The family of this 106-nucleotide RNA sequence from Butyricimonas sp. An62 is "SAM riboswitch aptamer (S box leader)".
[Rfam]
RNA sequence: GAAUUAUAAAGAGGAGUCGAGAGAACGGGCUCAUGGAAACUCCGACAACCUGCAAGGCUACUUGCAAGGUGCCAAAACCCGACCUGAGAACCAGGAGUUAUAAUUU
Numbered sequence: 001g002a003a004u005u006a007u008a009a010a011g012a013g014g015a016g017u018c019g020a021g022a023g024a025a026c027g028g029g030c031u032c033a034u035g036g037a038a039a040c041u042c043c044g045a046c047a048a049c050c051u052g053c054a055a056g057g058c059u060a061c062u063u064g065c066a067a068g069g070u071g072c073c074a075a076a077a078c079c080c081g082a083c084c085u086g087a088g089a090a091c092c093a094g095g096a097g098u099u100a101u102a103a104u105u106u
Stems, first nucleotide, its partner, number of pairs: 001106008013043005021032003026081004044073001046071002049069002051066004077098001083095004

Lineage of the source: Bacteria > Pseudomonadati > Bacteroidia > Odoribacteraceae > Butyricimonas.